Repression of heat shock gene expression (ROSE) element: a 65-nucleotide sequence from Pseudomonas sp. 8AS.
A search with the family's covariance model found it, with a score of 47 bits.
Rfam classes the family as an RNA thermoregulator.
Pairs were carried over by alignment from the consensus structure.

RNA sequence: UGAGGGGCGCCGAAGUCGGGCCCCGGUCAAUCCACUCGCUGAGAUUCAGGAGACAUGUCAUGAGC
Numbered sequence: 001u002g003a004g005g006g007g008c009g010c011c012g013a014a015g016u017c018g019g020g021c022c023c024c025g026g027u028c029a030a031u032c033c034a035c036u037c038g039c040u041g042a043g044a045u046u047c048a049g050g051a052g053a054c055a056u057g058u059c060a061u062g063a064g065c
Base pairs, nucleotide, nucleotide: 001026004024005023006022007021008020010019011018012017031053035052036051037050039049040048041047042046